[Rfam]
RNA sequence: GUUGAAGUUCCAUCUACAAAUGGAUAAGACUUUUUGAGUAGUCUGAAUUUAGACGAGUUUUUGGUUUGAAAGUAAGGGAGCAAUAUAAUUUUAUUGAUUUUAGCAAUAGACUUUGAUUAUUGCUCCCUU
Numbered sequence: 001g002u003u004g005a006a007g008u009u010c011c012a013u014c015u016a017c018a019a020a021u022g023g024a025u026a027a028g029a030c031u032u033u034u035u036g037a038g039u040a041g042u043c044u045g046a047a048u049u050u051a052g053a054c055g056a057g058u059u060u061u062u063g064g065u066u067u068g069a070a071a072g073u074a075a076g077g078g079a080g081c082a083a084u085a086u087a088a089u090u091u092u093a094u095u096g097a098u099u100u101u102a103g104c105a106a107u108a109g110a111c112u113u114u115g116a117u118u119a120u121u122g123c124u125c126c127c128u129u
Base pairs, nucleotide, nucleotide: 009024010023011022012021013020074129075128076127077126078125079124080123081122082121083120084119085118094109095106
RNA: Plastid-psbA-1 3UTR RNA
Organism: Miconia dodecandra